[Rfam]
RNA sequence: UGACCCUUAUUAAGCCGAGGGUCACCUAGCCAACUGACGUUGUUAGUGAAUACACAUUGUUCACAAGUAUAUACCGCCAAUCACCUUUCUUGUGAUUGGCGUUUUUUCU
Numbered sequence: 001u002g003a004c005c006c007u008u009a010u011u012a013a014g015c016c017g018a019g020g021g022u023c024a025c026c027u028a029g030c031c032a033a034c035u036g037a038c039g040u041u042g043u044u045a046g047u048g049a050a051u052a053c054a055c056a057u058u059g060u061u062c063a064c065a066a067g068u069a070u071a072u073a074c075c076g077c078c079a080a081u082c083a084c085c086u087u088u089c090u091u092g093u094g095a096u097u098g099g100c101g102u103u104u105u106u107u108c109u
Base pairs, nucleotide, nucleotide: 001024002023003022004021005020006019041073042072043071046064047063048062049061050060051059052058077099078098079097080096081095082094083093084092
This 109-nucleotide RNA from Vibrio parahaemolyticus belongs to the Rfam family "Qrr RNA". Rfam's curators write: This family represents a set of small RNAs (the Qrr RNAs) that are thought to be involved in the regulation of quorum sensing in Vibrio species. It is believed that these RNAs, guided by a protein, Hfq, can mediate the destabilisation of the quorum-sensing master regulators LuxR/HapR mRNAs. It is one of the family's seed sequences. Rfam links the family to the GO term quorum sensing. NCBI's taxonomy places the organism under Bacteria, Pseudomonadota, Vibrionaceae, Vibrio, Vibrio parahaemolyticus. The family's RNA type in Rfam is small RNA.